Source information
Alphaproteobacterial sRNA ar9: a 150-nucleotide RNA sequence from Ensifer fredii. By type it is a small RNA. A reference for the family is del Val et al. (2012), "A survey of sRNA families in alpha-proteobacteria", RNA Biol.
RNA sequence: ACAAAACAGGCAAGAAGACCAAAUUCUUGCCGAUUUUCGCGGUCAAGUCUUGGGAGGAUAAGAUCUUAGGCGCGCUCGUUCGCUGCCGCCGGCAACGGUUGAAAGAUCACGCGAAACUUGAAAAACAAGGCUUUGGCCUUGUUUUUUUUU
Numbered sequence: 001a002c003a004a005a006a007c008a009g010g011c012a013a014g015a016a017g018a019c020c021a022a023a024u025u026c027u028u029g030c031c032g033a034u035u036u037u038c039g040c041g042g043u044c045a046a047g048u049c050u051u052g053g054g055a056g057g058a059u060a061a062g063a064u065c066u067u068a069g070g071c072g073c074g075c076u077c078g079u080u081c082g083c084u085g086c087c088g089c090c091g092g093c094a095a096c097g098g099u100u101g102a103a104a105g106a107u108c109a110c111g112c113g114a115a116a117c118u119u120g121a122a123a124a125a126c127a128a129g130g131c132u133u134u135g136g137c138c139u140u141g142u143u144u145u146u147u148u149u150u
Base pairs, nucleotide, nucleotide: 003150004149005148006147011029012028013027014026015025016024038113039112040111041110047059048058049057050056062108063107064106065105066104069087070086071085072083073082074081089098090097091096124143125142126141127140128139129138130137131136
NCBI's taxonomy places the organism under Bacteria, Pseudomonadati, Alphaproteobacteria, Hyphomicrobiales, Ensifer fredii.